[Rfam]
Rfam assigns this 132-nucleotide RNA from Phyllostomus discolor to the family "Small nucleolar RNA SNORA33".
Rfam's curators write: ACA33 is a member of the H/ACA class of snoRNA that guide the sites of modification of uridines to pseudouridines.
The family's consensus secondary structure was predicted with PFOLD.
A search with the family's covariance model found it, with a score of 104 bits.
Rfam 15.1 lists 1,176 matches to the family in 522 species.
The source organism's lineage runs through Eukaryota, Craniata, Dipnotetrapodomorpha, Yangochiroptera and Phyllostomus.
RNA sequence: AUACUAAUUGUGAGUCUGCUUACCUGAAUGUGUUUCUCUCUGCAGAAAUUUAGAGAAAGCUGGCAAUGGUAAAGCCAUGUUGUGAGCCUUAAUGACUUGAAGUCAUUAAGGUCCCUGAAAAUGGCUAUAACG
Numbered sequence: 001a002u003a004c005u006a007a008u009u010g011u012g013a014g015u016c017u018g019c020u021u022a023c024c025u026g027a028a029u030g031u032g033u034u035u036c037u038c039u040c041u042g043c044a045g046a047a048a049u050u051u052a053g054a055g056a057a058a059g060c061u062g063g064c065a066a067u068g069g070u071a072a073a074g075c076c077a078u079g080u081u082g083u084g085a086g087c088c089u090u091a092a093u094g095a096c097u098u099g100a101a102g103u104c105a106u107u108a109a110g111g112u113c114c115c116u117g118a119a120a121a122u123g124g125c126u127a128u129a130a131c132g
Stems, first nucleotide, its partner, number of pairs: 001061001015046005074125004086112007094104003